Shown here is a 56-nucleotide RNA from Dellaglioa algida, a member of the family "Ribosomal protein L13 leader". About the family: This family is a putative r-protein leader autoregulatory structure found in B. subtilis and other low-GC Gram-positive bacteria. It is located in the 5' untranslated regions of mRNAs encoding the L13-S9 (rplM-rpsI) ribosomal protein operon. The family's RNA type in Rfam is cis-regulatory leader. The source organism's lineage runs through Bacteria, Bacilli, Lactobacillaceae, Dellaglioa and Dellaglioa algida. Its family is annotated with regulation of gene expression in the Gene Ontology. It scores 56 bits against the family's covariance model.
[Rfam]
RNA sequence: GGUAUUGUUUGCCCCACUGAUAGGCCCCGGAAACUUAUUUGAGUGUCAAACAAACA
Numbered sequence: 001g002g003u004a005u006u007g008u009u010u011g012c013c014c015c016a017c018u019g020a021u022a023g024g025c026c027c028c029g030g031a032a033a034c035u036u037a038u039u040u041g042a043g044u045g046u047c048a049a050a051c052a053a054a055c056a
Base pairs, nucleotide, nucleotide: 006052007051008050009049010048011047017041019039020038021037022036023035024034